[Rfam]
Rfam assigns this 229-nucleotide part of an RNA from Frankia sp. R43 to the family "Bacterial large subunit ribosomal RNA".
RNA sequence: GAGUUUGCGGUGUGUGGCGAGGUUAACCCGUGUGGGGUAGCCGUAGCGAAAGCGAGUCCGAAUAGGGCGUUGAGUCGCAUGUCCAAGACCCGAAGCCGAGUGAUCUACCCAUGGCCAGGUUGAAGCGCGGGUAAGACCGUGUGGAGGACCGAACCCACCAGGGUUGAAAACCUGGGGGAUGAGCUGUGGGUAGGGGUGAAAGGCCAAUCAAACUCGGUGAUAGCUGGUU
Numbered sequence: 001g002a003g004u005u006u007g008c009g010g011u012g013u014g015u016g017g018c019g020a021g022g023u024u025a026a027c028c029c030g031u032g033u034g035g036g037g038u039a040g041c042c043g044u045a046g047c048g049a050a051a052g053c054g055a056g057u058c059c060g061a062a063u064a065g066g067g068c069g070u071u072g073a074g075u076c077g078c079a080u081g082u083c084c085a086a087g088a089c090c091c092g093a094a095g096c097c098g099a100g101u102g103a104u105c106u107a108c109c110c111a112u113g114g115c116c117a118g119g120u121u122g123a124a125g126c127g128c129g130g131g132u133a134a135g136a137c138c139g140u141g142u143g144g145a146g147g148a149c150c151g152a153a154c155c156c157a158c159c160a161g162g163g164u165u166g167a168a169a170a171c172c173u174g175g176g177g178g179a180u181g182a183g184c185u186g187u188g189g190g191u192a193g194g195g196g197u198g199a200a201a202g203g204c205c206a207a208u209c210a211a212a213c214u215c216g217g218u219g220a221u222a223g224c225u226g227g228u229u
Stems, first nucleotide, its partner, number of pairs: 005086003009083010021042004027036003046053002056068004089227002092224001096217006105193011116181001118150004125142006154178003158175005195205003
NCBI's taxonomy places the organism under Bacteria, Actinomycetes, Frankiales, Frankiaceae, Frankia.